[Rfam]
RNA sequence: UAAAUAGGUUAUUCUUACCUAGGGCUGUCCGUCAUACCGUGAGAUAGGCACACGAGGGGUCCCAAGACUGCAUCAAUCGGCCGAAUUGCGUAAGACCGACGGCAAGGUACAUCUUUGAGAGUGUUGUCGCAUAGGGACGUGCAAAUCCGGAGAAUGGGGUGAGACUCCUCUGAAAUCCGGUACGCUUCAUUUGACGGGAAGCCCAAACAAACUGAAACACGCUAGCAGUUGUCGCGUUGGCGGUAUAUUACGUUUGA
Numbered sequence: 001u002a003a004a005u006a007g008g009u010u011a012u013u014c015u016u017a018c019c020u021a022g023g024g025c026u027g028u029c030c031g032u033c034a035u036a037c038c039g040u041g042a043g044a045u046a047g048g049c050a051c052a053c054g055a056g057g058g059g060u061c062c063c064a065a066g067a068c069u070g071c072a073u074c075a076a077u078c079g080g081c082c083g084a085a086u087u088g089c090g091u092a093a094g095a096c097c098g099a100c101g102g103c104a105a106g107g108u109a110c111a112u113c114u115u116u117g118a119g120a121g122u123g124u125u126g127u128c129g130c131a132u133a134g135g136g137a138c139g140u141g142c143a144a145a146u147c148c149g150g151a152g153a154a155u156g157g158g159g160u161g162a163g164a165c166u167c168c169u170c171u172g173a174a175a176u177c178c179g180g181u182a183c184g185c186u187u188c189a190u191u192u193g194a195c196g197g198g199a200a201g202c203c204c205a206a207a208c209a210a211a212c213u214g215a216a217a218c219a220c221g222c223u224a225g226c227a228g229u230u231g232u233c234g235c236g237u238u239g240g241c242g243g244u245a246u247a248u249u250a251c252g253u254u255u256g257a
Stems, first nucleotide, its partner, number of pairs: 005021005022204004030196005036190001038054004059138005077099004100129006209255004220242007
RNA: Hairpin ribozyme 2 from viruses-like metatranscriptomes